[Rfam]
RNA sequence: GGCGAUAAACGCUUUAUAGAAUAAGCGUUGCGGACCCGGGGGCAGUGCCCGGCGCCUCCACCAAUUCCUUCCCCCUCGGCCUAGGUUCCGACGAGGAUUUCAAAUGGGGGCGAAACAGGAUCGACGCGCGUGGUAAAGAUAGGGUUUUCGCCCGGCAUGGCACCACCGUUAUCGGGCCAACUUGAUAAAUGCCAAUGAUAACGAGGCAUUUGCUUUAGCCGCUUAA
Numbered sequence: 001g002g003c004g005a006u007a008a009a010c011g012c013u014u015u016a017u018a019g020a021a022u023a024a025g026c027g028u029u030g031c032g033g034a035c036c037c038g039g040g041g042g043c044a045g046u047g048c049c050c051g052g053c054g055c056c057u058c059c060a061c062c063a064a065u066u067c068c069u070u071c072c073c074c075c076u077c078g079g080c081c082u083a084g085g086u087u088c089c090g091a092c093g094a095g096g097a098u099u100u101c102a103a104a105u106g107g108g109g110g111c112g113a114a115a116c117a118g119g120a121u122c123g124a125c126g127c128g129c130g131u132g133g134u135a136a137a138g139a140u141a142g143g144g145u146u147u148u149c150g151c152c153c154g155g156c157a158u159g160g161c162a163c164c165a166c167c168g169u170u171a172u173c174g175g176g177c178c179a180a181c182u183u184g185a186u187a188a189a190u191g192c193c194a195a196u197g198a199u200a201a202c203g204a205g206g207c208a209u210u211u212g213c214u215u216u217a218g219c220c221g222c223u224u225a226a
Stems, first nucleotide, its partner, number of pairs: 001152005014142004026130003030127003036052005053112007153168003
Dot-bracket structure: (((((........((((........(((.(((...(((((.......)))))(((((((..............................................)))))))............))))))........)))).....)))))(((..........)))..........................................................
The family of this 226-nucleotide sequence from a Rhodospirillaceae bacterium is "permuted transfer-messenger RNA". Gene Ontology term of the family: RNA catabolic process. The family's RNA type in Rfam is non-coding RNA gene. Rfam's curators write: Bacterial tmRNA, also known as 10Sa RNA or SsrA, is named for its dual tRNA and mRNA-like properties.